[Rfam]
The family of this 77-nucleotide sequence is "S15-Methanomicrobia ribosomal protein leader".
It is annotated as a cis-regulatory leader.
On this family, see Eckert and Weinberg, BMC Microbiol 2020: "Discovery of 20 novel ribosomal leader candidates in bacteria and archaea".
Rfam's curators put it in the seed alignment.
RNA sequence: AGCACUUUUCAUAUGUGCUGACAGAUGUAAGUCCGACGUGCGACACCGCAUGGCCUCAAACAUGGCUUUGGGAUUAC
Numbered sequence: 001a002g003c004a005c006u007u008u009u010c011a012u013a014u015g016u017g018c019u020g021a022c023a024g025a026u027g028u029a030a031g032u033c034c035g036a037c038g039u040g041c042g043a044c045a046c047c048g049c050a051u052g053g054c055c056u057c058a059a060a061c062a063u064g065g066c067u068u069u070g071g072g073a074u075u076a077c
Base pairs, nucleotide, nucleotide: 001019002018003017004016005015027077028076029075030074033072034071038051039050040049041048042047052067053066054065055064